[Rfam]
Notes
A member of the RNA family "Bacterial large signal recognition particle RNA" from Desulfosarcina alkanivorans, 245 nucleotides long. Rfam links the family to the GO terms signal recognition particle, plasma membrane targeting and SRP-dependent cotranslational protein targeting to membrane, signal sequence recognition. Clan: SRP clan. A search with the family's covariance model found it, with a score of 152 bits. Rfam's curators write: The signal recognition particle (SRP) is a universally conserved ribonucleoprotein involved in the co-translational targeting of proteins to membranes.

RNA sequence: UUGUGCUAGGCGGGGAGCCAGCGGUGCCCUUUACCCGAAAUCCGCUUUAUGCGGGGCUGAAUUCCCCCCUUAGGGUUGAUCCCGAGAAAAUCGGGUCAUUUUGACCGGCCGCCGCGCAACAGACGGUCUCGAACCUCGUCAGGUCCGGAAGGAAGCAGCGAUAAGGGAUGCGGUCUGUGUCGUGGAUCGAUCCCGGUCAGACGGUGGCUCCGGUUUUUCGGAUCAGUUCGACGGGGGGUGCACAA
Numbered sequence: 001u002u003g004u005g006c007u008a009g010g011c012g013g014g015g016a017g018c019c020a021g022c023g024g025u026g027c028c029c030u031u032u033a034c035c036c037g038a039a040a041u042c043c044g045c046u047u048u049a050u051g052c053g054g055g056g057c058u059g060a061a062u063u064c065c066c067c068c069c070u071u072a073g074g075g076u077u078g079a080u081c082c083c084g085a086g087a088a089a090a091u092c093g094g095g096u097c098a099u100u101u102u103g104a105c106c107g108g109c110c111g112c113c114g115c116g117c118a119a120c121a122g123a124c125g126g127u128c129u130c131g132a133a134c135c136u137c138g139u140c141a142g143g144u145c146c147g148g149a150a151g152g153a154a155g156c157a158g159c160g161a162u163a164a165g166g167g168a169u170g171c172g173g174u175c176u177g178u179g180u181c182g183u184g185g186a187u188c189g190a191u192c193c194c195g196g197u198c199a200g201a202c203g204g205u206g207g208c209u210c211c212g213g214u215u216u217u218u219c220g221g222a223u224c225a226g227u228u229c230g231a232c233g234g235g236g237g238g239u240g241c242a243c244a245a
Base pairs, nucleotide, nucleotide: 001245002244003243004242005241006240009058010057011056012030013029014028015027017025018024019023034055035054036053037052039050064238065237066236067235068234069233073229074228075227076226077225079223080222081221083220084219085218086217087216088215089214093211094210095208096207097206098205099204100203102199103198104197105196106195107194108193112185113184114183115182116181117179118178120177121176122175123174124173126169127168128167129166130165136161137160138159139158144153145152146151